Notes: Shown here is a 76-nucleotide RNA sequence from Tribolium castaneum, a member of the family "mir-980 microRNA precursor family". Pairs were carried over by alignment from the consensus structure, which was predicted with RNAalifold. Gene Ontology terms of the family: RISC complex and miRNA-mediated post-transcriptional gene silencing. Rfam's curators put it in the seed alignment. NCBI's taxonomy places the organism under Eukaryota, Protostomia, Panarthropoda, Arthropoda, Tribolium.
[Rfam]
RNA sequence: GGUGCCGCAGGGCUCGUCAUGGGGUAGCUAGCGUGUGAUUAACAGCCAGCUGCCUUUUGAAGGGCUAUAUGGCAUU
Dot-bracket structure: ...((((.(.(((((.(((...((...((.((............)).))...))...))).))))).).))))...
Numbered sequence: 001g002g003u004g005c006c007g008c009a010g011g012g013c014u015c016g017u018c019a020u021g022g023g024g025u026a027g028c029u030a031g032c033g034u035g036u037g038a039u040u041a042a043c044a045g046c047c048a049g050c051u052g053c054c055u056u057u058u059g060a061a062g063g064g065c066u067a068u069a070u071g072g073c074a075u076u
Stems, first nucleotide, its partner, number of pairs: 004073004009068001011066005017060003023054002028049002031046002